Notes: The record is a 74-nucleotide sequence from a Propionibacteriales bacterium, which matches "6C RNA" in Rfam. For this family Rfam cites "Identification of 22 candidate structured RNAs in bacteria using the CMfinder comparative genomics pipeline" (Weinberg et al., Nucleic Acids Res, 2007). Its family is annotated with sporulation in the Gene Ontology. Taxonomically the source falls in Propionibacteriales (Bacteria, Bacillati, Actinomycetota, Actinomycetes). The family's consensus secondary structure is taken from published work.

RNA sequence: CAUGGUCUGGCCCCUCCCCCCCGGGCCAGACCUGAGACGGCCCCCGGUCACCCCCCCGCCGGGGGUCGUCGUCU
Numbered sequence: 001c002a003u004g005g006u007c008u009g010g011c012c013c014c015u016c017c018c019c020c021c022c023g024g025g026c027c028a029g030a031c032c033u034g035a036g037a038c039g040g041c042c043c044c045c046g047g048u049c050a051c052c053c054c055c056c057c058g059c060c061g062g063g064g065g066u067c068g069u070c071g072u073c074u
Stems, first nucleotide, its partner, number of pairs: 003034001004032010036070013